A member of the RNA family "Photosynthesis regulatory RNA1" from Calothrix sp. PCC 7507, 80 nucleotides long. The family's RNA type in Rfam is small RNA. The family's consensus secondary structure was predicted with CMfinder.
RNA sequence: AAGAUUUUCAAUUUCGGUAUCGGUAUCUCCCAUCGACAUUUGGACUUCUCCCUAUAACCUCGGUUUUCGCCGGGGUUUUU
Numbered sequence: 001a002a003g004a005u006u007u008u009c010a011a012u013u014u015c016g017g018u019a020u021c022g023g024u025a026u027c028u029c030c031c032a033u034c035g036a037c038a039u040u041u042g043g044a045c046u047u048c049u050c051c052c053u054a055u056a057a058c059c060u061c062g063g064u065u066u067u068c069g070c071c072g073g074g075g076u077u078u079u080u
Stems, first nucleotide, its partner, number of pairs: 057076008